[Rfam]
RNA sequence: AUGGAGAUGAUUUUUAUUUCCUCAAAUGAUCGAUGCUGAAUAAACUAAGCGAUCUUCUCUUUGGAGAUUGCAAGCCACAAAUCUGAUCCAU
Numbered sequence: 001a002u003g004g005a006g007a008u009g010a011u012u013u014u015u016a017u018u019u020c021c022u023c024a025a026a027u028g029a030u031c032g033a034u035g036c037u038g039a040a041u042a043a044a045c046u047a048a049g050c051g052a053u054c055u056u057c058u059c060u061u062u063g064g065a066g067a068u069u070g071c072a073a074g075c076c077a078c079a080a081a082u083c084u085g086a087u088c089c090a091u
Stems, first nucleotide, its partner, number of pairs: 001091005
RNA: Small nucleolar RNA Z103